[Rfam]
RNA sequence: CUUCUUCGAGUGACCGGAAGAUAACAUGAUCAUGAAAGUGGUUUUUCCUGGGUGAGGCUCAACCAUUGCACUGUGGGUGUGCUGUCCCCUGUGAUUUCCCCAAAUGCGGGGAAUCUUGAUUGCAUAAUUUGUGAUAGUGGGUGACUGCGUUCCUGUUUUCUCCUG
Numbered sequence: 001c002u003u004c005u006u007c008g009a010g011u012g013a014c015c016g017g018a019a020g021a022u023a024a025c026a027u028g029a030u031c032a033u034g035a036a037a038g039u040g041g042u043u044u045u046u047c048c049u050g051g052g053u054g055a056g057g058c059u060c061a062a063c064c065a066u067u068g069c070a071c072u073g074u075g076g077g078u079g080u081g082c083u084g085u086c087c088c089c090u091g092u093g094a095u096u097u098c099c100c101c102a103a104a105u106g107c108g109g110g111g112a113a114u115c116u117u118g119a120u121u122g123c124a125u126a127a128u129u130u131g132u133g134a135u136a137g138u139g140g141g142u143g144a145c146u147g148c149g150u151u152c153c154u155g156u157u158u159u160c161u162c163c164u165g
Stems, first nucleotide, its partner, number of pairs: 010123004016048006023042001025040003050089003054086001056083003060079002063076002092118003096112002099109002139164003143160002147156003

The record is a 165-nucleotide RNA from Pelodiscus sinensis, which matches "U1 spliceosomal RNA" in Rfam. Rfam 15.1 lists 40,184 matches to the family in 1,499 species. Rfam links the family to the GO terms pre-mRNA 5'-splice site binding, U1 snRNP and mRNA 5'-splice site recognition. Rfam classes the family as a spliceosomal small nuclear RNA.